Shown here is a 90-nucleotide sequence from Muraenolepis orangiensis, a member of the family "mir-204 microRNA precursor family".

RNA sequence: GAGUGACCAAUGGCCUUCCCUUUGUCAUCCUAUGCCUGGGCUCAUACUAAAGAGGCUGGGGAGGCCAAGGGACGCCCAUUCGUCAUACCA
Numbered sequence: 001g002a003g004u005g006a007c008c009a010a011u012g013g014c015c016u017u018c019c020c021u022u023u024g025u026c027a028u029c030c031u032a033u034g035c036c037u038g039g040g041c042u043c044a045u046a047c048u049a050a051a052g053a054g055g056c057u058g059g060g061g062a063g064g065c066c067a068a069g070g071g072a073c074g075c076c077c078a079u080u081c082g083u084c085a086u087a088c089c090a
Stems, first nucleotide, its partner, number of pairs: 017072006024065002028061005034056004